The record is a 119-nucleotide RNA from Butyrivibrio hungatei, which matches "SAM riboswitch aptamer (S box leader)" in Rfam. The family's consensus secondary structure is taken from published work. Taxonomically the source falls in Butyrivibrio (Bacteria, Bacillati, Clostridia, Lachnospirales).
RNA sequence: CUCUUAUUCAGAGUGGUGGAGGUACAUAGGACCUGUGAAGCCACGGCAACCCCUUGAUCAUAUCAGGAAGGUGCCAACCUGAGCGUGCAACUCCAGUAUUGGAAAACGAGCAAUAAGAG
Numbered sequence: 001c002u003c004u005u006a007u008u009c010a011g012a013g014u015g016g017u018g019g020a021g022g023u024a025c026a027u028a029g030g031a032c033c034u035g036u037g038a039a040g041c042c043a044c045g046g047c048a049a050c051c052c053c054u055u056g057a058u059c060a061u062a063u064c065a066g067g068a069a070g071g072u073g074c075c076a077a078c079c080u081g082a083g084c085g086u087g088c089a090a091c092u093c094c095a096g097u098a099u100u101g102g103a104a105a106a107c108g109a110g111c112a113a114u115a116a117g118a119g
Stems, first nucleotide, its partner, number of pairs: 001119008013044005021033003027083001030080001045075004050071002053067004084108003